[Rfam]
The record is a 46-nucleotide RNA from Kolteria novifilia, which matches "Acido-Lenti-1 RNA" in Rfam. Lineage of the source: Bacteria > Planctomycetia > Kolteriales > Kolteriaceae > Kolteria. It is annotated as a small RNA. The family's consensus secondary structure is taken from published work.
RNA sequence: CCUGGCACUGACGUACCAGGCUACGCGAUGGCGCCGCGAUGCGGCU
Numbered sequence: 001c002c003u004g005g006c007a008c009u010g011a012c013g014u015a016c017c018a019g020g021c022u023a024c025g026c027g028a029u030g031g032c033g034c035c036g037c038g039a040u041g042c043g044g045c046u
Stems, first nucleotide, its partner, number of pairs: 001020005007014002033045005